[Rfam]
RNA: Glycine riboswitch aptamer
Organism: Micromonospora sp. Llam0
RNA sequence: ACAUCCCGUGUGGGAGAGACCGUCCGCUACCCGGUGGGCGGCGCCGAAGGGGCAAAUCCUCCCCGGAACCUCUCAGGCAGAAGGACCACCCGGGUUGG
Numbered sequence: 001a002c003a004u005c006c007c008g009u010g011u012g013g014g015a016g017a018g019a020c021c022g023u024c025c026g027c028u029a030c031c032c033g034g035u036g037g038g039c040g041g042c043g044c045c046g047a048a049g050g051g052g053c054a055a056a057u058c059c060u061c062c063c064c065g066g067a068a069c070c071u072c073u074c075a076g077g078c079a080g081a082a083g084g085a086c087c088a089c090c091c092g093g094g095u096u097g098g
Stems, first nucleotide, its partner, number of pairs: 006093003010089004020041006043078003046074002050072003057065001